[Rfam]
RNA: SAM riboswitch aptamer (S box leader)
RNA sequence: UUCUUAUCAAGAGAGACGGAGGGAAUUGGCCCGAUGAUGUCUCAGCAACCAGUCUGAGAAAGACACGGUGCUAAAUCCAAAAGGUAUCCGCCUUAAAGAUAAGAA
Numbered sequence: 001u002u003c004u005u006a007u008c009a010a011g012a013g014a015g016a017c018g019g020a021g022g023g024a025a026u027u028g029g030c031c032c033g034a035u036g037a038u039g040u041c042u043c044a045g046c047a048a049c050c051a052g053u054c055u056g057a058g059a060a061a062g063a064c065a066c067g068g069u070g071c072u073a074a075a076u077c078c079a080a081a082a083g084g085u086a087u088c089c090g091c092c093u094u095a096a097a098g099a100u101a102a103g104a105a
Stems, first nucleotide, its partner, number of pairs: 001105008013043005021032003026080004044072004049068002052064003076097001081094005